[Rfam]
Rfam assigns this 335-nucleotide part of an RNA from Brasilonema sennae to the family "Bacterial large subunit ribosomal RNA". The source organism's lineage runs through Bacteria, Cyanophyceae, Nostocales, Brasilonema and Brasilonema sennae.

RNA sequence: CGAGAUAACUCUCUCUAAGGAACUCGGCAAAAUAGCCCCGUAACUUCGGAAGAAGGGGUGCCCACGUGAGUGGGUUGCAGUGAAGAGGCCCAGGCGACUGUUUACCAAAAACACAGGUCUCCGCCAACUCGUAAGAGGAAGUAUGGGGGCUGACGCCUGCCCAGUGCCGGAAGGUUAAGGAAGCUGGUCAGCCGAAAGGUAAAGCUGGCGACCGAAGCCCCGGUGAACGGCGGCCGUAACUAUAACGGUCCUAAGGUAGCGAAAUUCCUUGUCGGGUAAGUUCCGACCCGCACGAAAGGCGUAACGAUCUGGGCACUGUCUCGGAGAGAGACUCG
Dot-bracket structure: ((((....((((((((.(((..............(((((....(....).....)))))((((((....))))))(...).......(((((((((..(((.........)))..(((((((((...(((....)))...)..))))))))..((((.(((..(((((((..(((...((..((((((..((......))...))))))..))...))))))))..)))))((((((.......))))))(...).....(.........((((((.....))))))).........))))...)).)))))))....))).)))))))).))))